RNA sequence: AGCAUUAAGGUGGGUGGAAUAAUAUAACAAUAUUGUCUGUGUUGUUAUAGUACUCCACCCACCCUGAUGUC
Numbered sequence: 001a002g003c004a005u006u007a008a009g010g011u012g013g014g015u016g017g018a019a020u021a022a023u024a025u026a027a028c029a030a031u032a033u034u035g036u037c038u039g040u041g042u043u044g045u046u047a048u049a050g051u052a053c054u055c056c057a058c059c060c061a062c063c064c065u066g067a068u069g070u071c
Stems, first nucleotide, its partner, number of pairs: 003069005009063009020052002023049011
Rfam assigns this 71-nucleotide RNA from Megalops atlanticus to the family "mir-2985 microRNA precursor family". A reference for the family is Gunaratne et al. (2011), "Song exposure regulates known and novel microRNAs in the zebra finch auditory forebrain", BMC Genomics. The family's consensus secondary structure was predicted with RNAalifold. About the family: RNAs can be post-transcriptional modified, in micro RNAs (miRNA) editing of pre-mRNA is a common process.